[Rfam]
RNA sequence: GUGCAUCCAGUAAGAAUUGAACCUAUAAAUUUGCCAAUUAUGAGUUGGGUCCUUUAACCAUUCAGCCAUGGAUUC
Numbered sequence: 001g002u003g004c005a006u007c008c009a010g011u012a013a014g015a016a017u018u019g020a021a022c023c024u025a026u027a028a029a030u031u032u033g034c035c036a037a038u039u040a041u042g043a044g045u046u047g048g049g050u051c052c053u054u055u056a057a058c059c060a061u062u063c064a065g066c067c068a069u070g071g072a073u074u075c
Base pairs, nucleotide, nucleotide: 003075005073006072007071008070010026011025012024014022040069041068042067044066045065046064047063048062049061050060
Shown here is a 75-nucleotide sequence from Capsicum annuum, a member of the family "Plastid-ycf2 5UTR RNA". Pairs were carried over by alignment from the consensus structure, which was predicted with LocARNA. Rfam classes the family as a cis-regulatory element. The organism belongs to Capsicum, within Eukaryota. From the family's description: Plastid ycf2 is a non-coding RNA (ncRNA) recognised in plastids.